[Rfam]
The family of this 93-nucleotide RNA from Evansella cellulosilytica is "Selenocysteine transfer RNA". Its family is annotated with triplet codon-amino acid adaptor activity in the Gene Ontology.

Nucleotides: 093
Base pairs, nucleotide, nucleotide: 001093002092003091004090005089006088007087008085011027012026013025015024016023017022029045030044031043032042033041049067050066051065052064053063070084071083072082073081
Number, partner (000 for none) and nucleotide at each position: 001093g002092g003091g004090g005089c006088c007087g008085g009000u010000u011027g012026u013025g014000u015024a016023a017022c018000u019000g020000g021000u022017g023016u024015u025013u026012g027011c028000c029045g030044a031043g032042g033041u034000c035000u036000u037000c038000a039000a040000a041033a042032c043031c044030u045029u046000c047000a048000g049067g050066g051065g052064c053063u054000u055000g056000c057000g058000u059000g060000c061000c062000a063053a064052g065051c066050u067049c068000g069000g070084u071083g072082g073081g074000u075000u076000c077000g078000a079000u080000u081073c082072c083071c084070a085008c086000a087007c088006g089005g090004u091003c092002c093001c